The record is a 94-nucleotide RNA sequence from Nicotiana sylvestris, which matches "MIR3627 microRNA precursor family" in Rfam. The organism belongs to Nicotiana, within Eukaryota.
RNA sequence: AAGGAUAUUCUUUCACAGGAGAGAGGGCAGGGGUCUGAUAAGUGUCCGGACACUUAUCAGACCCCUGCCCUCUCUCCUGUGAAAGAAUAUCCUU
Numbered sequence: 001a002a003g004g005a006u007a008u009u010c011u012u013u014c015a016c017a018g019g020a021g022a023g024a025g026g027g028c029a030g031g032g033g034u035c036u037g038a039u040a041a042g043u044g045u046c047c048g049g050a051c052a053c054u055u056a057u058c059a060g061a062c063c064c065c066u067g068c069c070c071u072c073u074c075u076c077c078u079g080u081g082a083a084a085g086a087a088u089a090u091c092c093u094u
Stems, first nucleotide, its partner, number of pairs: 002093003006089003010085002013082017031064015